Description: A member of the RNA family "MIR7486 microRNA precursor family" from Gossypium lobatum, 86 nucleotides long. Rfam 15.1 lists 10,132 matches to the family in 36 species. Gene Ontology terms of the family: miRNA-mediated post-transcriptional gene silencing and RISC complex. The family's consensus secondary structure was predicted with RNAalifold.
[Rfam]
RNA sequence: CACGUCAGAGCGCUUUGCUGACAUGCAGCAAAUCGCGCCCUCUAGGACGCGAUUUGCUACCACGUCAACAAAGCGCUCUGACGUGG
Numbered sequence: 001c002a003c004g005u006c007a008g009a010g011c012g013c014u015u016u017g018c019u020g021a022c023a024u025g026c027a028g029c030a031a032a033u034c035g036c037g038c039c040c041u042c043u044a045g046g047a048c049g050c051g052a053u054u055u056g057c058u059a060c061c062a063c064g065u066c067a068a069c070a071a072a073g074c075g076c077u078c079u080g081a082c083g084u085g086g
Stems, first nucleotide, its partner, number of pairs: 001085017019067003024062002027058011039046002